[Rfam]
RNA sequence: GGCCUCAAAUGAUGGAAAAAGAUGACUUUGGGAGGAUAAUGACCAAACUGGAUUGUAUUCGUACUGUCUGAUGGGGUC
Numbered sequence: 001g002g003c004c005u006c007a008a009a010u011g012a013u014g015g016a017a018a019a020a021g022a023u024g025a026c027u028u029u030g031g032g033a034g035g036a037u038a039a040u041g042a043c044c045a046a047a048c049u050g051g052a053u054u055g056u057a058u059u060c061g062u063a064c065u066g067u068c069u070g071a072u073g074g075g076g077u078c
Stems, first nucleotide, its partner, number of pairs: 001078007011068005019062001021059003025056002027052002030049002035044001
Record summary
The family of this 78-nucleotide RNA from Nyctereutes procyonoides is "Small nucleolar RNA ZL2". Lineage of the source: Eukaryota > Bilateria > Deuterostomia > Sarcopterygii > Nyctereutes. A search with the family's covariance model found it, with a score of 67 bits. Rfam 15.1 lists 126 matches to the family in 125 species. The base pairs follow the family's consensus structure, which was predicted with RNAfold.